[Rfam]
RNA: Bacterial small signal recognition particle RNA
RNA sequence: GACGGGCCCCCUCGCAUGGGAGCGCGCCCAACCGGGUCAGGUGGGGAACCAAGCAGCCCUUAGCGUUGCAACCAGUGCCGAGGUAAGGCUCGUCACC
Numbered sequence: 001g002a003c004g005g006g007c008c009c010c011c012u013c014g015c016a017u018g019g020g021a022g023c024g025c026g027c028c029c030a031a032c033c034g035g036g037u038c039a040g041g042u043g044g045g046g047a048a049c050c051a052a053g054c055a056g057c058c059c060u061u062a063g064c065g066u067u068g069c070a071a072c073c074a075g076u077g078c079c080g081a082g083g084u085a086a087g088g089c090u091c092g093u094c095a096c097c
Stems, first nucleotide, its partner, number of pairs: 004091005010083005015075001017074003022069001024066004034059004042051003